[Rfam]
RNA sequence: CUUUCAAUUCUUUCUUUGUUGUUAG
Number, nucleotide and partner (000 for none) at each position: 001c000002u000003u000004u000005c021006a020007a019008u018009u000010c000011u000012u000013u000014c000015u000016u000017u000018g008019u007020u006021g005022u000023u000024a000025g000
The record is a 25-nucleotide RNA from Nylanderia fulva, which matches "CRISPR RNA direct repeat element" in Rfam. Lineage of the source: Eukaryota > Opisthokonta > Hexapoda > Neoptera > Nylanderia. Rfam 15.1 lists 138 matches to the family in 15 species. Rfam links the family to the GO term defense response.